[Rfam]
RNA sequence: CCUCUGCUUUAACAUGGAGGUACUUGCUGAACCCCUACAAAGUAAGUGCUUCCAUGUUUUAGUUGGGG
Numbered sequence: 001c002c003u004c005u006g007c008u009u010u011a012a013c014a015u016g017g018a019g020g021u022a023c024u025u026g027c028u029g030a031a032c033c034c035c036u037a038c039a040a041a042g043u044a045a046g047u048g049c050u051u052c053c054a055u056g057u058u059u060u061a062g063u064u065g066g067g068g
Stems, first nucleotide, its partner, number of pairs: 001068003006063003011058018

Notes
Rfam assigns this 68-nucleotide sequence from Nyctibius bracteatus to the family "mir-302 microRNA precursor family". Gene Ontology terms of the family: miRNA-mediated post-transcriptional gene silencing and RISC complex. It scores 76 bits against the family's covariance model. A reference for the family is Suh et al. (2004), "Human embryonic stem cells express a unique set of microRNAs", Dev Biol.